[Rfam]
RNA sequence: ACAGUCUGAGAAUCCCUUGUGUUCCCCUGGGGCCAUAACUGUGCCCACAGCAGAGGGAGCAUUAAACUCAUUGCCCACGGGAAAGUGUGGGCAGUGAUACCCAUGUUCCUAGAAUC
Numbered sequence: 001a002c003a004g005u006c007u008g009a010g011a012a013u014c015c016c017u018u019g020u021g022u023u024c025c026c027c028u029g030g031g032g033c034c035a036u037a038a039c040u041g042u043g044c045c046c047a048c049a050g051c052a053g054a055g056g057g058a059g060c061a062u063u064a065a066a067c068u069c070a071u072u073g074c075c076c077a078c079g080g081g082a083a084a085g086u087g088u089g090g091g092c093a094g095u096g097a098u099a100c101c102c103a104u105g106u107u108c109c110u111a112g113a114a115u116c
Stems, first nucleotide, its partner, number of pairs: 006041001008039001010036001014032003056109001058107005068097005076089003
A member of the RNA family "Small nucleolar RNA ACA64" from Bucco capensis, 116 nucleotides long. The source organism's lineage runs through Eukaryota, Euteleostomi, Amniota, Archosauria and Bucco. On this family, see Schattner et al., RNA 2006: "A computational screen for mammalian pseudouridylation guide H/ACA RNAs".